[Rfam]
RNA sequence: GCGGUGUGAGGUAGUUGGUUGUAUGGUUUCGCAUUAUAAACAGCCUGGAGAUAACUGUACAACCUUCUAGCUUUCCCUGC
Numbered sequence: 001g002c003g004g005u006g007u008g009a010g011g012u013a014g015u016u017g018g019u020u021g022u023a024u025g026g027u028u029u030c031g032c033a034u035u036a037u038a039a040a041c042a043g044c045c046u047g048g049a050g051a052u053a054a055c056u057g058u059a060c061a062a063c064c065u066u067c068u069a070g071c072u073u074u075c076c077c078u079g080c
Base pairs, nucleotide, nucleotide: 001080002079003078004077006075008073009072010071012069013068014067017064018063019062020061021060022059023058024057025056026055027054034040035039